[Rfam]
RNA sequence: UGCCUGGUUCCCUUUGGAAGACUAGUGAUUUUGUUGUUGUAUGGCUCAUCCCACCACAACAAGUCACAGUCUGCCCUAGGGCACACGGCC
Numbered sequence: 001u002g003c004c005u006g007g008u009u010c011c012c013u014u015u016g017g018a019a020g021a022c023u024a025g026u027g028a029u030u031u032u033g034u035u036g037u038u039g040u041a042u043g044g045c046u047c048a049u050c051c052c053a054c055c056a057c058a059a060c061a062a063g064u065c066a067c068a069g070u071c072u073g074c075c076c077u078a079g080g081g082c083a084c085a086c087g088g089c090c
Base pairs, nucleotide, nucleotide: 002089003088004087007084008083010081011080012079013078016075017074019072020071021070022069023068025067026066027065028064029063030062031061033060034059035058036057037056
RNA: mir-7 microRNA precursor family